[Rfam]
Rfam assigns this 87-nucleotide RNA sequence from Triticum aestivum to the family "MIR1120/MIR1122 microRNA precursor family". A search with the family's covariance model found it, with a score of 87 bits. The literature on the family includes a 2007 paper in Genome Biol by Yao et al., "Cloning and characterization of microRNAs from wheat (Triticum aestivum L.)". Rfam links the family to the GO terms RISC complex and miRNA-mediated post-transcriptional gene silencing. The base pairs follow the family's consensus structure, which was predicted with RNAalifold.
RNA sequence: AUACUCCCUCCAUCCCAUAAUGUAAGACGUUUUUUAACACUACACUAGUGUAAAAAAGCGUAUUACAUUAUGGGAGGGAGGGAGUAA
Numbered sequence: 001a002u003a004c005u006c007c008c009u010c011c012a013u014c015c016c017a018u019a020a021u022g023u024a025a026g027a028c029g030u031u032u033u034u035u036a037a038c039a040c041u042a043c044a045c046u047a048g049u050g051u052a053a054a055a056a057a058g059c060g061u062a063u064u065a066c067a068u069u070a071u072g073g074g075a076g077g078g079a080g081g082g083a084g085u086a087a
Stems, first nucleotide, its partner, number of pairs: 003085003007081005013075005019069007027061009037051005